[Rfam]
RNA sequence: GGUUGGGCGAUAGCUUUCAAGGAUGAUUCUUCAAGGGGUGAGAAGAA
Numbered sequence: 001g002g003u004u005g006g007g008c009g010a011u012a013g014c015u016u017u018c019a020a021g022g023a024u025g026a027u028u029c030u031u032c033a034a035g036g037g038g039u040g041a042g043a044a045g046a047a
Stems, first nucleotide, its partner, number of pairs: 003020003006015003027047006

A member of the RNA family "Na+ riboswitch aptamer (DUF1646)" from Carnobacterium iners, 47 nucleotides long. Pairs were carried over by alignment from the consensus structure, which is taken from published work. The source organism's lineage runs through Bacteria, Bacillota, Bacilli, Lactobacillales and Carnobacterium. For this family Rfam cites "Na(+) riboswitches regulate genes for diverse physiological processes in bacteria" (White et al., Nat Chem Biol, 2022).